RNA sequence: CUCCGCGCCCUAGGCGCGGAGCUUUUUUCCGACAGUAAAAGGGGUCUGCCCGUG
Numbered sequence: 001c002u003c004c005g006c007g008c009c010c011u012a013g014g015c016g017c018g019g020a021g022c023u024u025u026u027u028u029c030c031g032a033c034a035g036u037a038a039a040a041g042g043g044g045u046c047u048g049c050c051c052g053u054g
Base pairs, nucleotide, nucleotide: 001021002020003019004018005017006016007015008014